[Rfam]
RNA: transfer-messenger RNA
RNA sequence: GGGGAUGAUCGGUUUCGACAGCGAUCUUCAAUCGAUGUGAAGCGGGCCGAGGAUGUCUACUGACCUCGUUAACCAUGUAUUCAAAACAAUAGGUGCUGAACAGAACCGCACCGACUUUGCCCUCGCUGCCUAAUCUAGCGAGCAAGUCCGUCAGCCCAAGCAAUGCUCUGAGUUUGGUUCCUGGCGUCGUUUUAUGAGCCACUGGGUUGCCAUCGCGUUGGGAGGCGGUAACCGACACUUUCUCAACUGAGCCACCUAGUUGCAGGUUUGCAUGUUGCUAGUGGCUGAGAAACUUAUUGCAAACUGCGCCCGGAGAAGAAAUUGGGGUGGGUCGUUGGACCCGGGUUCAAUUCCCGGCAUCUCCACUA
Numbered sequence: 001g002g003g004g005a006u007g008a009u010c011g012g013u014u015u016c017g018a019c020a021g022c023g024a025u026c027u028u029c030a031a032u033c034g035a036u037g038u039g040a041a042g043c044g045g046g047c048c049g050a051g052g053a054u055g056u057c058u059a060c061u062g063a064c065c066u067c068g069u070u071a072a073c074c075a076u077g078u079a080u081u082c083a084a085a086a087c088a089a090u091a092g093g094u095g096c097u098g099a100a101c102a103g104a105a106c107c108g109c110a111c112c113g114a115c116u117u118u119g120c121c122c123u124c125g126c127u128g129c130c131u132a133a134u135c136u137a138g139c140g141a142g143c144a145a146g147u148c149c150g151u152c153a154g155c156c157c158a159a160g161c162a163a164u165g166c167u168c169u170g171a172g173u174u175u176g177g178u179u180c181c182u183g184g185c186g187u188c189g190u191u192u193u194a195u196g197a198g199c200c201a202c203u204g205g206g207u208u209g210c211c212a213u214c215g216c217g218u219u220g221g222g223a224g225g226c227g228g229u230a231a232c233c234g235a236c237a238c239u240u241u242c243u244c245a246a247c248u249g250a251g252c253c254a255c256c257u258a259g260u261u262g263c264a265g266g267u268u269u270g271c272a273u274g275u276u277g278c279u280a281g282u283g284g285c286u287g288a289g290a291a292a293c294u295u296a297u298u299g300c301a302a303a304c305u306g307c308g309c310c311c312g313g314a315g316a317a318g319a320a321a322u323u324g325g326g327g328u329g330g331g332u333c334g335u336u337g338g339a340c341c342c343g344g345g346u347u348c349a350a351u352u353c354c355c356g357g358c359a360u361c362u363c364c365a366c367u368a
Base pairs, nucleotide, nucleotide: 001364002363003362004361005360006359007358019337020336021335022334023333024332025331026330027329032325033324034323035322036321038319043312044311045310046309047308048068049067050066051065052064054083055082058079059078060077122142123141124140125139126138127137128136149186150185151184152183153182154181156177157176158175160174165199166198167197168196205233206232207231208230209229210228211227213225217247218246219245220244221243250286251285252284253283254282256281257280258279259278262275263274264273266304267303268302269301270300271299272298341357342356343355344354345353